[Rfam]
Nucleotides: 090
Base pairs, nucleotide, nucleotide: 002089004087005085006084007083
Number, partner (000 for none) and nucleotide at each position: 001000u002089u003000a004087g005085g006084a007083u008000a009000a010000g011000u012000g013000a014000u015000u016000u017000u018000a019000c020000u021000u022000g023000a024000a025000a026000c027000u028000g029000u030000u031000u032000u033000a034000u035000c036000g037000a038000u039000c040000u041000g042000u043000a044000a045000c046000u047000u048000c049000c050000u051000a052000u053000a054000g055000g056000a057000a058000u059000u060000g061000a062000a063000u064000a065000u066000a067000a068000u069000c070000a071000g072000a073000a074000c075000u076000u077000a078000c079000u080000g081000a082000g083007a084006u085005c086000a087004c088000c089002a090000u
Notes: The family of this 90-nucleotide RNA sequence from Trifolium medium is "Small nucleolar RNA snoR27". The family's RNA type in Rfam is C/D-box small nucleolar RNA. For this family Rfam cites "Multiple snoRNA gene clusters from Arabidopsis" (Brown et al., RNA, 2001).